[Rfam]
RNA sequence: GUUGUUUGGUGAUGAGGGGUGGAACAAGCGCUGAGCAGUAUCUGACACCCGUGGGGAGUGGCUCUGCACUGCUUUUCUUCUGAGAUCAGC
Numbered sequence: 001g002u003u004g005u006u007u008g009g010u011g012a013u014g015a016g017g018g019g020u021g022g023a024a025c026a027a028g029c030g031c032u033g034a035g036c037a038g039u040a041u042c043u044g045a046c047a048c049c050c051g052u053g054g055g056g057a058g059u060g061g062c063u064c065u066g067c068a069c070u071g072c073u074u075u076u077c078u079u080c081u082g083a084g085a086u087c088a089g090c
Stems, first nucleotide, its partner, number of pairs: 001090004

Small nucleolar RNA U83B: a 90-nucleotide RNA from Aptenodytes forsteri. The pairing is the family consensus, mapped onto this sequence. For this family Rfam cites "Characterisation of the U83 and U84 small nucleolar RNAs: two novel 2'-O-ribose methylation guide RNAs that lack complementarities to ribosomal RNAs" (Jady and Kiss, Nucleic Acids Res, 2000). A search with the family's covariance model found it, with a score of 48 bits. Its family is annotated with nucleolus and RNA processing in the Gene Ontology. The organism belongs to Aptenodytes, within Eukaryota. U83B belongs to the C/D family of snoRNAs.